[Rfam]
Glycine riboswitch aptamer: a 101-nucleotide RNA from Corynebacterium heidelbergense. Gene Ontology term of the family: glycine biosynthetic process. Taxonomically the source falls in Corynebacterium (Bacteria, Actinomycetota, Actinomycetes, Mycobacteriales). From the family's description: This family represents the bacterial glycine riboswitch. Glycine riboswitches usually consist of two metabolite-binding aptamers domains with similar structures in tandem.

RNA sequence: UCAGCCACGGUGGGAGAGGCCCGGACGUUUCAGCGCCGGCCGCCGACGGAGCAAACUCCUCCCCGAGCCAAUCUCUCAGGCCCCCGUACCGCCGUGGCAAG
Dot-bracket structure: .....((((((((.......(((.............)))..(((((..(((....(..........).....))))).))).......)))))))).....

The match comes from Rfam's covariance-model search (53 bits).